[Rfam]
RNA sequence: AAAAAAUACGUUACAUUAAUUCGUAUAUUCUUAGAACUAUGGCCUAAGAGUCUCUACUAGGAGCCUAAAAAUCCUAACUACGAAUGGGUGAGAUUAGUCU
Numbered sequence: 001a002a003a004a005a006a007u008a009c010g011u012u013a014c015a016u017u018a019a020u021u022c023g024u025a026u027a028u029u030c031u032u033a034g035a036a037c038u039a040u041g042g043c044c045u046a047a048g049a050g051u052c053u054c055u056a057c058u059a060g061g062a063g064c065c066u067a068a069a070a071a072u073c074c075u076a077a078c079u080a081c082g083a084a085u086g087g088g089u090g091a092g093a094u095u096a097g098u099c100u
Stems, first nucleotide, its partner, number of pairs: 019085007029049006058076005
Notes
A member of the RNA family "Purine riboswitch aptamer" from Paenibacillus pini, 100 nucleotides long. The base pairs follow the family's consensus structure, which is taken from published work. NCBI's taxonomy places the organism under Bacteria, Caryophanales, Paenibacillaceae, Paenibacillus, Paenibacillus pini. Riboswitches are metabolite binding domains within certain messenger RNAs that serve as precision sensors for their corresponding targets. Allosteric rearrangement of mRNA structure is mediated by ligand binding, and this results in modulation of gene expression. A class of riboswitches that selectively recognises guanine and becomes saturated at concentrations as low as 5 nM. In Bacillus subtilis, this mRNA motif is located on at least five separate transcriptional units that together encode 17 genes that are mostly involved in purine transport and purine nucleotide biosynthesis. It has also been shown that some members of this family are specific for adenine instead. Gene Ontology term of the family: purine nucleobase biosynthetic process.